This 64-nucleotide RNA from Olivibacter sp. LS-1 belongs to the Rfam family "DUF805 RNA".
Pairs were carried over by alignment from the consensus structure, which is taken from published work.

RNA sequence: CCAAGGUGGAGCAGCAACCACCUAAAAAACGGGCGAUCCGAAAAGCCAAACGAGUAGGAAUAAC
Numbered sequence: 001c002c003a004a005g006g007u008g009g010a011g012c013a014g015c016a017a018c019c020a021c022c023u024a025a026a027a028a029a030c031g032g033g034c035g036a037u038c039c040g041a042a043a044a045g046c047c048a049a050a051c052g053a054g055u056a057g058g059a060a061u062a063a064c
Stems, first nucleotide, its partner, number of pairs: 006021004032047003038058002